[Rfam]
RNA sequence: GACGAAUCUAUUGCCCGCCAAGCCCUGACGUUACCGCGGCAGGGGGAGGGCGGCGAAAAGAGGAGUUC
Number, nucleotide and partner (000 for none) at each position: 001g000002a000003c000004g000005a000006a000007u000008c000009u000010a000011u056012u055013g054014c000015c053016c052017g051018c050019c049020a000021a000022g000023c044024c043025c042026u041027g040028a000029c038030g037031u036032u000033a000034c000035c000036g031037c030038g029039g000040c027041a026042g025043g024044g023045g000046g000047a000048g000049g019050g018051c017052g016053g015054c013055g012056a011057a000058a000059a000060g000061a000062g000063g000064a000065g000066u000067u000068c000
RNA: ilvH RNA